The family of this 513-nucleotide sequence from Austropuccinia psidii is "Nuclear RNase P". About the family: Ribonuclease P (RNase P) is a ubiquitous endoribonuclease, found in archaea, bacteria and eukarya as well as chloroplasts and mitochondria. It is annotated as a ribozyme. Lineage of the source: Eukaryota > Pucciniomycotina > Pucciniales > Austropuccinia > Austropuccinia psidii. On this family, see Xiao et al., Annu Rev Biochem 2002: "Eukaryotic Ribonuclease P: A Plurality of Ribonucleoprotein Enzymes".

RNA sequence: CCAGGCCAAAGACCACGGCUCGUCGUUCUUACUCUCAAAGAAAGGCAAGAGUUUGGCUCUUCCUUUCUUUUGCUUCGCGACGGGGUUAAGGUCCGAGUCUUUUAAUCCUCUUCACCUUAGCUCUAAAGGAGCAUGCUCUUGUAAGCAAAUCGAGUAGGACGCAUCAUCAGAAAUCAUCUCUCGUUUGGUUUUUCCUCUAGGAUGUUUGGGUCGAGUGCCUCAGAAGAUGUAGAUUCCUCCUCAAGACUUGCUUUGGGUUCGACCUUGGCUGUUCGAAAGUUCGCCUUGGUUAACCUGUGAUUAGCCCGAAGACCUUGAAUAUAUUCAAUGAGGGCUUUCUUGCAUUUCUGGGAGAAUGAAGUUUUUCUUGGACUCUUCUCUCUCCUUGGACGAGAUUGGGAACGGUGCGUGAGGAUUGCGGCCAUUUGGUGUCGUCGCUUAAGUGCAAUCCGUGGUGUGCGAUAAGAGUCUCUGAUUCUACGCAUAACUCAAUUCGGACUAUUCUUGGCCUGG
Numbered sequence: 001c002c003a004g005g006c007c008a009a010a011g012a013c014c015a016c017g018g019c020u021c022g023u024c025g026u027u028c029u030u031a032c033u034c035u036c037a038a039a040g041a042a043a044g045g046c047a048a049g050a051g052u053u054u055g056g057c058u059c060u061u062c063c064u065u066u067c068u069u070u071u072g073c074u075u076c077g078c079g080a081c082g083g084g085g086u087u088a089a090g091g092u093c094c095g096a097g098u099c100u101u102u103u104a105a106u107c108c109u110c111u112u113c114a115c116c117u118u119a120g121c122u123c124u125a126a127a128g129g130a131g132c133a134u135g136c137u138c139u140u141g142u143a144a145g146c147a148a149a150u151c152g153a154g155u156a157g158g159a160c161g162c163a164u165c166a167u168c169a170g171a172a173a174u175c176a177u178c179u180c181u182c183g184u185u186u187g188g189u190u191u192u193u194c195c196u197c198u199a200g201g202a203u204g205u206u207u208g209g210g211u212c213g214a215g216u217g218c219c220u221c222a223g224a225a226g227a228u229g230u231a232g233a234u235u236c237c238u239c240c241u242c243a244a245g246a247c248u249u250g251c252u253u254u255g256g257g258u259u260c261g262a263c264c265u266u267g268g269c270u271g272u273u274c275g276a277a278a279g280u281u282c283g284c285c286u287u288g289g290u291u292a293a294c295c296u297g298u299g300a301u302u303a304g305c306c307c308g309a310a311g312a313c314c315u316u317g318a319a320u321a322u323a324u325u326c327a328a329u330g331a332g333g334g335c336u337u338u339c340u341u342g343c344a345u346u347u348c349u350g351g352g353a354g355a356a357u358g359a360a361g362u363u364u365u366u367c368u369u370g371g372a373c374u375c376u377u378c379u380c381u382c383u384c385c386u387u388g389g390a391c392g393a394g395a396u397u398g399g400g401a402a403c404g405g406u407g408c409g410u411g412a413g414g415a416u417u418g419c420g421g422c423c424a425u426u427u428g429g430u431g432u433c434g435u436c437g438c439u440u441a442a443g444u445g446c447a448a449u450c451c452g453u454g455g456u457g458u459g460c461g462a463u464a465a466g467a468g469u470c471u472c473u474g475a476u477u478c479u480a481c482g483c484a485u486a487a488c489u490c491a492a493u494u495c496g497g498a499c500u501a502u503u504c505u506u507g508g509c510c511u512g513g
Stems, first nucleotide, its partner, number of pairs: 001513004007507003012456007020083005040067006093497005105416004120132004134156005159410007179395010457485005